This 47-nucleotide RNA sequence from Novipirellula maiorica belongs to the Rfam family "Acido-Lenti-1 RNA".
RNA sequence: CCUCGGACUGACGUCCGGGGCUAUCGCCUGCCGUCGCUACCGCGACU
Numbered sequence: 001c002c003u004c005g006g007a008c009u010g011a012c013g014u015c016c017g018g019g020g021c022u023a024u025c026g027c028c029u030g031c032c033g034u035c036g037c038u039a040c041c042g043c044g045a046c047u
Stems, first nucleotide, its partner, number of pairs: 001020008033046005
Dot-bracket structure: ((((((((....))))))))............(((((....))))).
Annotation:
Pairs were carried over by alignment from the consensus structure, which is taken from published work.